[Rfam]
SAM (S-adenosyl methionine) riboswitch aptamer: a 111-nucleotide sequence from Streptacidiphilus jiangxiensis. Rfam's curators write: SAM-IV is a mRNA element that regulates gene expression via direct sensing of S-adenosylmethionine (SAM or AdoMet). The match comes from Rfam's covariance-model search (101 bits). The source organism's lineage runs through Bacteria, Actinomycetes, Kitasatosporales, Streptomycetaceae and Streptacidiphilus. The base pairs follow the family's consensus structure, which is taken from published work.
RNA sequence: GGUCAAGAGCGUCAGCGUGCAGCCCUGGCUUGCUGACCGGCAACCCUCCGCUGCGGUGGGGUGCUCCAGGUGACGACCGGACAGGACGACGGCGUCCUGUAAGCGCGAGGC
Numbered sequence: 001g002g003u004c005a006a007g008a009g010c011g012u013c014a015g016c017g018u019g020c021a022g023c024c025c026u027g028g029c030u031u032g033c034u035g036a037c038c039g040g041c042a043a044c045c046c047u048c049c050g051c052u053g054c055g056g057u058g059g060g061g062u063g064c065u066c067c068a069g070g071u072g073a074c075g076a077c078c079g080g081a082c083a084g085g086a087c088g089a090c091g092g093c094g095u096c097c098u099g100u101a102a103g104c105g106c107g108a109g110g111c
Stems, first nucleotide, its partner, number of pairs: 001078004009038001011037006021030002039065003044061003048056002081100008